[Rfam]
RNA sequence: CUUGAUGGACCCCAGCCACAGGGGCUGGUCGGCGUCCCGCUCCCGCCCAUACGUGGCAAGCAGCGCCUGCGCCUC
Numbered sequence: 001c002u003u004g005a006u007g008g009a010c011c012c013c014a015g016c017c018a019c020a021g022g023g024g025c026u027g028g029u030c031g032g033c034g035u036c037c038c039g040c041u042c043c044c045g046c047c048c049a050u051a052c053g054u055g056g057c058a059a060g061c062a063g064c065g066c067c068u069g070c071g072c073c074u075c
Base pairs, nucleotide, nucleotide: 014026015025016024017023032070033069038065039064043060047056048055049054
A member of the RNA family "ASpks TB sRNA" from Streptomyces malaysiensis, 75 nucleotides long. Lineage of the source: Bacteria > Actinomycetota > Actinomycetes > Streptomycetaceae > Streptomyces. It scores 76 bits against the family's covariance model.